[Rfam]
RNA sequence: CAUAGCCGUCGGUAGGUGAGGCUACCGCAGGGAUACGGGUUGCUGCCGCAGAGUCGUGGAGACACGAUGAGAGGGCCAACAGUUCACGUCGAAAAACAAGGCGUGAAAUAGUGCAACAACAUCGCCCUGCGGAGCUAAAGCUUGAACGAUAGCUUGUA
Numbered sequence: 001c002a003u004a005g006c007c008g009u010c011g012g013u014a015g016g017u018g019a020g021g022c023u024a025c026c027g028c029a030g031g032g033a034u035a036c037g038g039g040u041u042g043c044u045g046c047c048g049c050a051g052a053g054u055c056g057u058g059g060a061g062a063c064a065c066g067a068u069g070a071g072a073g074g075g076c077c078a079a080c081a082g083u084u085c086a087c088g089u090c091g092a093a094a095a096a097c098a099a100g101g102c103g104u105g106a107a108a109u110a111g112u113g114c115a116a117c118a119a120c121a122u123c124g125c126c127c128u129g130c131g132g133a134g135c136u137a138a139a140g141c142u143u144g145a146a147c148g149a150u151a152g153c154u155u156g157u158a
Stems, first nucleotide, its partner, number of pairs: 004154003008150002011147001013099001015142003020136003025132008039117005045076003054067002057064002083107003088102003
RNA: M-box riboswitch aptamer (ykoK leader)